[Rfam]
Nucleotides: 121
Stems, first nucleotide, its partner, number of pairs: 011026006028052003033047002036043002090108008
Number, partner (000 for none) and nucleotide at each position: 001000u002000g003000u004000g005000u006000c007000a008000a009000g010000a011026a012025g013024a014023a015022a016021c017000a018000g019000c020000c021016g022015u023014u024013u025012c026011u027000c028052a029051c030050c031000u032000u033047g034046c035000a036043g037042c038000g039000a040000g041000a042037g043036c044000u045000a046034g047033u048000a049000g050030g051029g052028u053000u054000u055000u056000u057000u058000a059000u060000u061000a062000c063000u064000g065000g066000a067000u068000a069000u070000u071000a072000g073000g074000a075000u076000u077000a078000g079000u080000g081000g082000u083000a084000a085000u086000a087000u088000a089000g090108a091107g092106c093105g094104g095103c096102u097101u098000u099000u100000c101097a102096a103095g104094c105093c106092g107091c108090u109000c110000u111000u112000u113000u114000a115000u116000u117000a118000u119000u120000u121000a
Rfam assigns this 121-nucleotide RNA from Clostridium fallax to the family "Ribosomal protein L20 leader". A reference for the family is Zengel and Lindahl (1994), "Diverse mechanisms for regulating ribosomal protein synthesis in Escherichia coli", Prog Nucleic Acid Res Mol Biol. About the family: This family is a putative r-protein leader autoregulatory structure found in B. subtilis and other low-GC Gram-positive bacteria. Taxonomically the source falls in Clostridium (Bacteria, Bacillati, Bacillota, Clostridia). By type it is a cis-regulatory leader.